[Rfam]
RNA sequence: AAAACUUGCUCUUUUAGUAUUUGUCAAGUAGGGUUCUAAAGUUUUAGAACCCCUU
Numbered sequence: 001a002a003a004a005c006u007u008g009c010u011c012u013u014u015u016a017g018u019a020u021u022u023g024u025c026a027a028g029u030a031g032g033g034u035u036c037u038a039a040a041g042u043u044u045u046a047g048a049a050c051c052c053c054u055u
Stems, first nucleotide, its partner, number of pairs: 031052009